The record is a 56-nucleotide RNA from Streptomyces beijiangensis, which matches "L17-Actino-Proteobacteria ribosomal protein leader" in Rfam.
The organism belongs to Streptomyces, within Bacteria.
A search with the family's covariance model found it, with a score of 63 bits.
For this family Rfam cites "Discovery of 20 novel ribosomal leader candidates in bacteria and archaea" (Eckert and Weinberg, BMC Microbiol, 2020).
Pairs were carried over by alignment from the consensus structure, which is taken from published work.
By type it is a cis-regulatory leader.

RNA sequence: CCGGCGGGCAGACGCUCGUCGGGCACUGACAUCGGUACCUCGUACGGCCGGUGCAG
Numbered sequence: 001c002c003g004g005c006g007g008g009c010a011g012a013c014g015c016u017c018g019u020c021g022g023g024c025a026c027u028g029a030c031a032u033c034g035g036u037a038c039c040u041c042g043u044a045c046g047g048c049c050g051g052u053g054c055a056g
Stems, first nucleotide, its partner, number of pairs: 001022009026056003030053007